[Rfam]
A member of the RNA family "Flavo-1 RNA" from Flavobacterium branchiophilum, 80 nucleotides long. Rfam classes the family as a small RNA.

RNA sequence: AAAUAGCCCCGACUGCAGUGGAAAUCCUUUUUGUUUUUUCUUUAAAAACAAAAAGAUUGUAACGAAAGGCGGGAACUGCC
Numbered sequence: 001a002a003a004u005a006g007c008c009c010c011g012a013c014u015g016c017a018g019u020g021g022a023a024a025u026c027c028u029u030u031u032u033g034u035u036u037u038u039u040c041u042u043u044a045a046a047a048a049c050a051a052a053a054a055g056a057u058u059g060u061a062a063c064g065a066a067a068g069g070c071g072g073g074a075a076c077u078g079c080c
Stems, first nucleotide, its partner, number of pairs: 009072003013068002018063002023058004029053010